[Rfam]
RNA sequence: CGGGAACAACCGACGUUAGGGAAUUCGGCAAGUUAGUCCCGUACGUUCGCAAUAAGGGAUGCCUGCCCUCUAUGGGGCAGGUCGCAGUGACUCGGUGGCUCCGACUGUCUAGUAACAACACAGGUGACCGCAAAUCCGCAAGGACUCGUACGGUCACUGAAUCCUGCCCAGUGCAGGUAUCUGAACACCUCGUACAAGAGGACGAAGGACCUGUCAACGGCGGGGGUAACUAUGACCCUCUUAAGGUAGCGUAGUACCUUGUCGCUUCAGUAGCGACUCGCAUGAAUGGAUCAACGAGAGCCACACUGUCCCAACGUUGGGCCCGGUGAACUGUACGUUCCAGUGCGGAGUCUGGAGA
Numbered sequence: 001c002g003g004g005a006a007c008a009a010c011c012g013a014c015g016u017u018a019g020g021g022a023a024u025u026c027g028g029c030a031a032g033u034u035a036g037u038c039c040c041g042u043a044c045g046u047u048c049g050c051a052a053u054a055a056g057g058g059a060u061g062c063c064u065g066c067c068c069u070c071u072a073u074g075g076g077g078c079a080g081g082u083c084g085c086a087g088u089g090a091c092u093c094g095g096u097g098g099c100u101c102c103g104a105c106u107g108u109c110u111a112g113u114a115a116c117a118a119c120a121c122a123g124g125u126g127a128c129c130g131c132a133a134a135u136c137c138g139c140a141a142g143g144a145c146u147c148g149u150a151c152g153g154u155c156a157c158u159g160a161a162u163c164c165u166g167c168c169c170a171g172u173g174c175a176g177g178u179a180u181c182u183g184a185a186c187a188c189c190u191c192g193u194a195c196a197a198g199a200g201g202a203c204g205a206a207g208g209a210c211c212u213g214u215c216a217a218c219g220g221c222g223g224g225g226g227u228a229a230c231u232a233u234g235a236c237c238c239u240c241u242u243a244a245g246g247u248a249g250c251g252u253a254g255u256a257c258c259u260u261g262u263c264g265c266u267u268c269a270g271u272a273g274c275g276a277c278u279c280g281c282a283u284g285a286a287u288g289g290a291u292c293a294a295c296g297a298g299a300g301c302c303a304c305a306c307u308g309u310c311c312c313a314a315c316g317u318u319g320g321g322c323c324c325g326g327u328g329a330a331c332u333g334u335a336c337g338u339u340c341c342a343g344u345g346c347g348g349a350g351u352c353u354g355g356a357g358a
Stems, first nucleotide, its partner, number of pairs: 001325004010320008019311003036060005045050001061082009083087001095304007102296002106120003123158008131148001135144003161291004166221003171218002173214005180209003188201004222240006241245001261277006339356005

Archaeal large subunit ribosomal RNA: a 358-nucleotide part of an RNA from Halobaculum gomorrense. The source organism's lineage runs through Archaea, Methanobacteriota, Halobacteria, Halobacteriales and Halobaculum. It scores 2750 bits against the family's covariance model. On this family, see Yusupov et al., Science 2001: "Crystal structure of the ribosome at 5.5 A resolution". The base pairs follow the family's consensus structure, which is taken from published work.